[Rfam]
RNA sequence: ACAAUGUUCCGCUGUCAUUAUCUCGAGAAGGGGUGGCAAGAGCAUUGG
Dot-bracket structure: ..(((((((...((.((((............)))).)).)))))))..